This 113-nucleotide RNA from Cicer arietinum belongs to the Rfam family "MIR1509 microRNA precursor family".
RNA sequence: UGAUCCAUUGAAUAAUUUUAAUCAGGGAAAUCACAGUUGAGAUGGUGUGAGAUCUCUGUGUCUUUUUUUCUUUCUCUACUGUGUUUCCCUGUUUAAAGAAAUUCAUUGGUUCU
Dot-bracket structure: .((.(((...(((..((((((.((((((((.((((((.(((................................))).)))))))))))))).))))))..)))...))).)).
The organism belongs to Cicer, within Eukaryota.